Shown here is a 173-nucleotide sequence from Paenibacillus albilobatus, a member of the family "c-di-AMP riboswitch aptamer (ydaO/yuaA leader)". Lineage of the source: Bacteria > Bacillati > Caryophanales > Paenibacillaceae > Paenibacillus.
[Rfam]
RNA sequence: ACGUCUUUAACGCUGAAUUCCGGCUUCGGCCGGAAUCGGGGGAACCAACGCGCCGUAAGCAUCCAAUUUGCCGAUGGCGCCGGGGUGAAUCCCUUUGUCCGUACCGGACGAGGGAAGGGCGACUCUCACGCCCUAAUCCGUCAGCUAACCUCGUAAGCGUAUAGGGAGAGGCC
Number, nucleotide and partner (000 for none) at each position: 001a000002c000003g000004u000005c000006u000007u000008u000009a000010a000011c159012g158013c157014u156015g000016a000017a000018u035019u034020c033021c032022g031023g030024c000025u000026u000027c000028g000029g000030c023031c022032g021033g020034a019035a018036u000037c153038g152039g151040g150041g149042g000043a000044a000045c000046c082047a000048a000049c000050g000051c000052g000053c000054c000055g000056u000057a000058a000059g000060c000061a000062u000063c000064c000065a000066a000067u000068u000069u000070g000071c000072c000073g000074a000075u000076g000077g000078c000079g000080c000081c000082g046083g139084g138085g137086u000087g000088a000089a000090u000091c114092c113093c112094u111095u000096u000097g000098u000099c000100c000101g000102u000103a000104c000105c000106g000107g000108a000109c000110g000111a094112g093113g092114g091115a000116a000117g133118g132119g131120c130121g000122a000123c000124u000125c000126u000127c000128a000129c000130g120131c119132c118133c117134u000135a000136a000137u085138c084139c083140g000141u000142c000143a000144g000145c000146u000147a000148a000149c041150c040151u039152c038153g037154u000155a000156a014157g013158c012159g011160u000161a000162u000163a000164g000165g000166g000167a000168g000169a000170g000171g000172c000173c000